[Rfam]
Nucleotides: 119
Base pairs, nucleotide, nucleotide: 001119002118003117004116005115006114007113008112013042016041017040018039022032023031024030026088028086029085043080044079045078046077048076049075050072052070084111089108090107091106092105093104094103
Number, partner (000 for none) and nucleotide at each position: 001119c002118u003117c004116u005115u006114a007113u008112c009000a010000a011000g012000a013042g014000u015000a016041g017040g018039u019000g020000g021000a022032g023031g024030g025000a026088c027000u028086a029085g030024c031023c032022c033000g034000a035000u036000g037000a038000u039018a040017c041016c042013c043080g044079g045078c046077a047000a048076c049075c050072g051000a052070c053000a054000g055000g056000c057000u058000c059000a060000u061000a062000a063000g064000c065000g066000a067000g068000c069000a070052g071000g072050c073000a074000c075049g076048g077046u078045g079044c080043u081000a082000a083000a084111u085029c086028u087000u088026g089108c090107a091106g092105g093104a094103a095000c096000a097000u098000g099000c100000a101000u102000g103094u104093u105092u106091c107090u108089g109000a110000g111084a112008g113007a114006u115005g116004a117003g118002a119001g

SAM riboswitch aptamer (S box leader): a 119-nucleotide RNA from Paenibacillus sp. J31TS4. The base pairs follow the family's consensus structure, which is taken from published work. It scores 76 bits against the family's covariance model. Gene Ontology term of the family: regulation of gene expression. NCBI's taxonomy places the organism under Bacteria, Bacillati, Bacillota, Bacilli, Paenibacillus.